[Rfam]
RNA sequence: UCAGAAAAAGCCAAACCACUCGUGAGGGUGGGACGGAAAGCUGCGGAUCUUAUUCACACUAAUAAUAAGAUAGCCGGGUUGCCUGAA
Number, nucleotide and partner (000 for none) at each position: 001u087002c000003a084004g083005a000006a000007a000008a000009a000010g000011c036012c035013a000014a000015a000016c031017c030018a029019c028020u027021c026022g000023u000024g000025a000026g021027g020028g019029u018030g017031g016032g000033a000034c073035g012036g011037a000038a000039a080040g079041c078042u077043g000044c076045g075046g074047a071048u070049c069050u068051u067052a066053u065054u064055c000056a000057c000058a000059c000060u000061a000062a000063u000064a054065a053066u052067a051068a050069g049070a048071u047072a000073g034074c046075c045076g044077g042078g041079u040080u039081g000082c000083c004084u003085g000086a000087a001
Background:
c-di-GMP-I-GGC riboswitch aptamer: an 87-nucleotide RNA from Candidatus Vecturithrix granuli. Its family is annotated with cyclic-di-GMP binding in the Gene Ontology. The match comes from Rfam's covariance-model search (71 bits). The literature on the family includes a 2017 paper in Proc Natl Acad Sci U S A by Weinberg et al., "Bioinformatic analysis of riboswitch structures uncovers variant classes with altered ligand specificity". Taxonomically the source falls in Candidatus Vecturithrix (Bacteria, Candidatus Vecturitrichia, Candidatus Vecturitrichales, Candidatus Vecturitrichaceae).